The family of this 268-nucleotide RNA sequence from Capsulimonas corticalis is "Bacterial large signal recognition particle RNA". The base pairs follow the family's consensus structure, which is taken from published work. For this family Rfam cites "SRPDB: Signal Recognition Particle Database" (Rosenblad et al., Nucleic Acids Res, 2003). Rfam links the family to the GO terms signal recognition particle, plasma membrane targeting and SRP-dependent cotranslational protein targeting to membrane, signal sequence recognition. Rfam classes the family as a non-coding RNA gene. NCBI's taxonomy places the organism under Bacteria, Armatimonadota, Armatimonadia, Capsulimonadaceae, Capsulimonas.

[Rfam]
RNA sequence: CCGUGCUAGGUGGGGCGGUUCCGGUGCCCUAUUCUCCAAACCCGGGUUAUGGGAGAUUGAAUUCCCGCCUUCGGGGCGCUCCUUUACGGUUCUGGCGUACGUACGCGGUGUUGAUGGACGGACCCAGCGCAACGGACAAGCUUCGAACCUCGUCAGGUCGGGAACGAAGCAGCGAUAAGGAGUCUUGCCCGUGUGCCGCUGGUGCUCUGACCGGAGCUUGCGGCGUUACGUAACACGUGGAGGAACGACUUCAACGGCAGGUGCACGG
Numbered sequence: 001c002c003g004u005g006c007u008a009g010g011u012g013g014g015g016c017g018g019u020u021c022c023g024g025u026g027c028c029c030u031a032u033u034c035u036c037c038a039a040a041c042c043c044g045g046g047u048u049a050u051g052g053g054a055g056a057u058u059g060a061a062u063u064c065c066c067g068c069c070u071u072c073g074g075g076g077c078g079c080u081c082c083u084u085u086a087c088g089g090u091u092c093u094g095g096c097g098u099a100c101g102u103a104c105g106c107g108g109u110g111u112u113g114a115u116g117g118a119c120g121g122a123c124c125c126a127g128c129g130c131a132a133c134g135g136a137c138a139a140g141c142u143u144c145g146a147a148c149c150u151c152g153u154c155a156g157g158u159c160g161g162g163a164a165c166g167a168a169g170c171a172g173c174g175a176u177a178a179g180g181a182g183u184c185u186u187g188c189c190c191g192u193g194u195g196c197c198g199c200u201g202g203u204g205c206u207c208u209g210a211c212c213g214g215a216g217c218u219u220g221c222g223g224c225g226u227u228a229c230g231u232a233a234c235a236c237g238u239g240g241a242g243g244a245a246c247g248a249c250u251u252c253a254a255c256g257g258c259a260g261g262u263g264c265a266c267g268g
Base pairs, nucleotide, nucleotide: 001268002267003266004265005264006263009058010057011056012030013029014028015027016026017025019023034055035054036053037052039050064261065260067258068257069256073252074251075250076249080244081243082242083241084240085239086238087237088236093232094231097229098228099226100225101224102223105221106220107218108217109216115213116212117211119209120208121207122206124202125201126200127199128198129197130193131192133191134190135189137187140183141182142181143180144179150175151174152173153172158167159166160165